RNA sequence: AUAAUGAUACUUAUAAUCAAAAUGCCCCGUGGAGGGGUUGGUGUGAUUCCAAUGA
Numbered sequence: 001a002u003a004a005u006g007a008u009a010c011u012u013a014u015a016a017u018c019a020a021a022a023u024g025c026c027c028c029g030u031g032g033a034g035g036g037g038u039u040g041g042u043g044u045g046a047u048u049c050c051a052a053u054g055a
Stems, first nucleotide, its partner, number of pairs: 012052001013023002024038003028034001039051003

The record is a 55-nucleotide RNA from [Clostridium] innocuum, which matches "pemK RNA" in Rfam. The family's consensus secondary structure is taken from published work. Rfam classes the family as a cis-regulatory element. NCBI's taxonomy places the organism under Bacteria, Bacillati, Eubacteriales, Clostridiaceae, [Clostridium] innocuum. A search with the family's covariance model found it, with a score of 37 bits.